[Rfam]
RNA sequence: UUGCGGGUGGUGUUGCGUUUAUGCGUGAAGCUUGGGUCCGUGUGCGCAUCCCGGAACCUCCCGUCUGCAA
Number, nucleotide and partner (000 for none) at each position: 001u070002u069003g068004c067005g066006g065007g064008u063009g062010g061011u000012g060013u029014u027015g026016c025017g024018u023019u000020u000021a000022u000023g018024c017025g016026u015027g014028a000029a013030g000031c000032u000033u000034g059035g058036g057037u055038c054039c053040g052041u000042g000043u000044g000045c000046g000047c000048a000049u000050c000051c000052c040053g039054g038055a037056a000057c036058c035059u034060c012061c010062c009063g008064u007065c006066u005067g004068c003069a002070a001